Background
Rfam assigns this 118-nucleotide RNA sequence from Microlunatus kandeliicorticis to the family "mraW RNA". The family's consensus secondary structure is taken from published work. The family has 45 seed sequences and 851 matches in Rfam 15.1. The source organism's lineage runs through Bacteria, Bacillati, Actinomycetota, Propionibacteriales and Microlunatus. By type it is a cis-regulatory element.
RNA sequence: CGCGGCCCGUGUCCCGGGGCUUCAGCCCCGAGACCCGGUCUCCCUGGCGCACCUUCCCCGGUGCCAGGUGGGCCAUCCAGGGUCUCGGGCUGAAACCUCGGGGCACGAGCCGCACCGG
Number, nucleotide and partner (000 for none) at each position: 001c000002g000003c000004g000005g000006c000007c000008c000009g000010u105011g104012u103013c102014c101015c100016g099017g000018g097019g096020c000021u094022u093023c092024a091025g090026c089027c000028c088029c087030g086031a085032g084033a083034c082035c081036c000037g000038g073039u072040c071041u070042c000043c068044c067045u066046g065047g064048c063049g062050c061051a000052c000053c000054u000055u000056c000057c000058c000059c000060g000061g050062u049063g048064c047065c046066a045067g044068g043069u000070g041071g040072g039073c038074c000075a000076u000077c000078c000079a000080g000081g035082g034083u033084c032085u031086c030087g029088g028089g026090c025091u024092g023093a022094a021095a000096c019097c018098u000099c016100g015101g014102g013103g012104c011105a010106c000107g000108a000109g000110c000111c000112g000113c000114a000115c000116c000117g000118g000